Shown here is a 157-nucleotide RNA from Streptomyces sp. NTH33, a member of the family "c-di-AMP riboswitch aptamer (ydaO/yuaA leader)".
[Rfam]
RNA sequence: CCCGCACACUCACCCGUGCACGGCAGGAGCGGGGGACCCACAGGAACCACCGCCUGUCCCGGUCCCCGGGAACAGGCUCGGGGUGAAGCCGCAUCACGCGGCCGGGCGGCUCCAGCCCGAACCCGACAGCUCACCUCGCAGGCGCCGGAGAGGAAUU
Numbered sequence: 001c002c003c004g005c006a007c008a009c010u011c012a013c014c015c016g017u018g019c020a021c022g023g024c025a026g027g028a029g030c031g032g033g034g035g036a037c038c039c040a041c042a043g044g045a046a047c048c049a050c051c052g053c054c055u056g057u058c059c060c061g062g063u064c065c066c067c068g069g070g071a072a073c074a075g076g077c078u079c080g081g082g083g084u085g086a087a088g089c090c091g092c093a094u095c096a097c098g099c100g101g102c103c104g105g106g107c108g109g110c111u112c113c114a115g116c117c118c119g120a121a122c123c124c125g126a127c128a129g130c131u132c133a134c135c136u137c138g139c140a141g142g143c144g145c146c147g148g149a150g151a152g153g154a155a156u157u
Base pairs, nucleotide, nucleotide: 001027002026029139030138031137032136033135034134039080081124082123083122089101090100091099092098104118105117106116107115